[Rfam]
Rfam assigns this 168-nucleotide RNA from Alligator mississippiensis to the family "Small Cajal body specific RNA 1". Rfam's curators write: scaRNAs are a specific class of small nuclear RNAs which localise to the Cajal bodies and guide the modification of RNA polymerase II transcribed spliceosomal RNAs U1, U2, U4, U5 and U12. ACA35 belong to the H/ACA box class of guide RNAs as it has the predicted hairpin-hinge-hairpin-tail structure, conserved H/ACA-box motifs and is found associated with GAR1. It is predicted to guide pseudouridylation of the U2 spliceosomal snRNA at residue U89.
RNA sequence: AAGCACUUGAUACUAACCAAGCUAUCUGUAUCUCAGAUUUCUAUAGAGCUCUGAGAUGCACUUCGUGAUAGCUGGGUCUGAGAAGUGCAACAUCAAAACAAACAGCCAUGCAGUAUUUAAGCUCACUGUGUGGAGGAUCACACUGGGUUAUAACUCAGAGGCACAGAU
Numbered sequence: 001a002a003g004c005a006c007u008u009g010a011u012a013c014u015a016a017c018c019a020a021g022c023u024a025u026c027u028g029u030a031u032c033u034c035a036g037a038u039u040u041c042u043a044u045a046g047a048g049c050u051c052u053g054a055g056a057u058g059c060a061c062u063u064c065g066u067g068a069u070a071g072c073u074g075g076g077u078c079u080g081a082g083a084a085g086u087g088c089a090a091c092a093u094c095a096a097a098a099c100a101a102a103c104a105g106c107c108a109u110g111c112a113g114u115a116u117u118u119a120a121g122c123u124c125a126c127u128g129u130g131u132g133g134a135g136g137a138u139c140a141c142a143c144u145g146g147g148u149u150a151u152a153a154c155u156c157a158g159a160g161g162c163a164c165a166g167a168u
Stems, first nucleotide, its partner, number of pairs: 003088006016077003020073007027060006035052003039048002105162003127140002131136001143158006
Rfam 15.1 lists 715 matches to the family in 617 species. Taxonomically the source falls in Alligator (Eukaryota, Deuterostomia, Sarcopterygii, Crocodylia). It scores 126 bits against the family's covariance model. For this family Rfam cites "Cajal body-specific small nuclear RNAs: a novel class of 2'-O-methylation and pseudouridylation guide RNAs" (Darzacq et al., EMBO J, 2002).